[Rfam]
RNA sequence: AUAUUUUUCUAGAUUUUGAUUUUUAUUACAUCUUCAUGCAAAAAUCAAAACCUAAAGAAAAUG
Numbered sequence: 001a002u003a004u005u006u007u008u009c010u011a012g013a014u015u016u017u018g019a020u021u022u023u024u025a026u027u028a029c030a031u032c033u034u035c036a037u038g039c040a041a042a043a044a045u046c047a048a049a050a051c052c053u054a055a056a057g058a059a060a061a062u063g
Stems, first nucleotide, its partner, number of pairs: 004060005010054003014050011